M-box riboswitch aptamer (ykoK leader): a 166-nucleotide sequence from Clostridium ljungdahlii. Its family is annotated with response to magnesium ion and regulation of gene expression in the Gene Ontology. It scores 146 bits against the family's covariance model. Taxonomically the source falls in Clostridium (Bacteria, Bacillati, Clostridia, Eubacteriales).

[Rfam]
RNA sequence: GUUUAAUUAUGUUAGGUGAGGCUCCUAUAUAGACAUAUGCUGCUGCCCCGAAACAUCGAGAGAUGCCAAUGGGUGAACAGGUAUUACCGUAGUAAGGUUUUACUUAAUGCAGCUGGAUGAAAAUCUAAAGCUAUAUAGUGCUAAAACUCGUACGAUUUAAAAAGUU
Numbered sequence: 001g002u003u004u005a006a007u008u009a010u011g012u013u014a015g016g017u018g019a020g021g022c023u024c025c026u027a028u029a030u031a032g033a034c035a036u037a038u039g040c041u042g043c044u045g046c047c048c049c050g051a052a053a054c055a056u057c058g059a060g061a062g063a064u065g066c067c068a069a070u071g072g073g074u075g076a077a078c079a080g081g082u083a084u085u086a087c088c089g090u091a092g093u094a095a096g097g098u099u100u101u102a103c104u105u106a107a108u109g110c111a112g113c114u115g116g117a118u119g120a121a122a123a124u125c126u127a128a129a130g131c132u133a134u135a136u137a138g139u140g141c142u143a144a145a146a147c148u149c150g151u152a153c154g155a156u157u158u159a160a161a162a163a164g165u166u
Stems, first nucleotide, its partner, number of pairs: 007161002011153002013095001015148003020142003025138008039113005045074004054065004080104004086098003115126003

For this family Rfam cites "Structure and mechanism of a metal-sensing regulatory RNA" (Dann CE 3rd et al., Cell, 2007). Rfam 15.1 lists 1,095 matches to the family in 932 species.